[Rfam]
RNA sequence: UGAGGAGCUGCAGGAGAGUCCUCCCUCUGGCCAAGGGAGGCGCCGAAGGAGCAACUUCCCGGAAUCUCUCAGGCCCAGGUACUGCAGUUCCGAG
Numbered sequence: 001u002g003a004g005g006a007g008c009u010g011c012a013g014g015a016g017a018g019u020c021c022u023c024c025c026u027c028u029g030g031c032c033a034a035g036g037g038a039g040g041c042g043c044c045g046a047a048g049g050a051g052c053a054a055c056u057u058c059c060c061g062g063a064a065u066c067u068c069u070c071a072g073g074c075c076c077a078g079g080u081a082c083u084g085c086a087g088u089u090c091c092g093a094g
Base pairs, nucleotide, nucleotide: 006089007088008087009086010085011084012083013082020040021039022038023037024036025035042074043073044072045070046069049068050067051066055061
Rfam assigns this 94-nucleotide RNA from Micromonospora globbae to the family "Glycine riboswitch aptamer". Rfam's curators write: This family represents the bacterial glycine riboswitch. The source organism's lineage runs through Bacteria, Bacillati, Actinomycetota, Micromonosporaceae and Micromonospora. The match comes from Rfam's covariance-model search (66 bits).